[Rfam]
RNA sequence: CCGGGGCUCGUGGCCCCGGAGGCGGCCAGCACGUCUGGACGCCGCUUGUACCCACGUUGCUCUAGGAGAACCUGGCUAUGAGAA
Numbered sequence: 001c002c003g004g005g006g007c008u009c010g011u012g013g014c015c016c017c018g019g020a021g022g023c024g025g026c027c028a029g030c031a032c033g034u035c036u037g038g039a040c041g042c043c044g045c046u047u048g049u050a051c052c053c054a055c056g057u058u059g060c061u062c063u064a065g066g067a068g069a070a071c072c073u074g075g076c077u078a079u080g081a082g083a084a
Base pairs, nucleotide, nucleotide: 001019002018003017004016005015006014007013008012021043022042023041024040026038027037028036029035045082046081047080048079049078050077052075053074054073056071057070058069060068061067062066
Shown here is an 84-nucleotide sequence from an Alphaproteobacteria bacterium, a member of the family "Repression of heat shock gene expression (ROSE) element". Rfam classes the family as an RNA thermoregulator. Taxonomically the source falls in Alphaproteobacteria (Bacteria, Pseudomonadati, Pseudomonadota). Rfam describes the family as follows. This family represents a 5' UTR cis-regulatory element found in heat shock mRNAs and is known as the ROSE (repression of heat shock gene expression) element. The ROSE element is a negative regulator of heat shock gene expression. A search with the family's covariance model found it, with a score of 50 bits. Rfam links the family to the GO terms response to temperature stimulus and regulation of translation.